[Rfam]
RNA sequence: UGAUCUGCGGCGGGAGAGUCCUGCGAGCAAGAGCAAGCAGGCGCCGUAGGAGCAACACCUCCCCAGGAAUCUCUCAGGCACCUGUACCGCUGCGGCAAG
Numbered sequence: 001u002g003a004u005c006u007g008c009g010g011c012g013g014g015a016g017a018g019u020c021c022u023g024c025g026a027g028c029a030a031g032a033g034c035a036a037g038c039a040g041g042c043g044c045c046g047u048a049g050g051a052g053c054a055a056c057a058c059c060u061c062c063c064c065a066g067g068a069a070u071c072u073c074u075c076a077g078g079c080a081c082c083u084g085u086a087c088c089g090c091u092g093c094g095g096c097a098a099g
Base pairs, nucleotide, nucleotide: 006094007093008092009091010090011089012088013087020041021040022039023038043079044078045077046075050073051072052071056066
RNA: Glycine riboswitch aptamer